This 58-nucleotide sequence from Mytilus edulis belongs to the Rfam family "Selenocysteine insertion sequence 1". Its family is annotated with selenocysteine incorporation in the Gene Ontology. The family's consensus secondary structure is taken from published work. The family's RNA type in Rfam is cis-regulatory element.
RNA sequence: GACUGUUCAUGACGUUAAAAUACUAAAUCCCUGGGGUGUGUUUUAGUUGAUUUUAGUC
Numbered sequence: 001g002a003c004u005g006u007u008c009a010u011g012a013c014g015u016u017a018a019a020a021u022a023c024u025a026a027a028u029c030c031c032u033g034g035g036g037u038g039u040g041u042u043u044u045a046g047u048u049g050a051u052u053u054u055a056g057u058c
Stems, first nucleotide, its partner, number of pairs: 005058001014047010029036002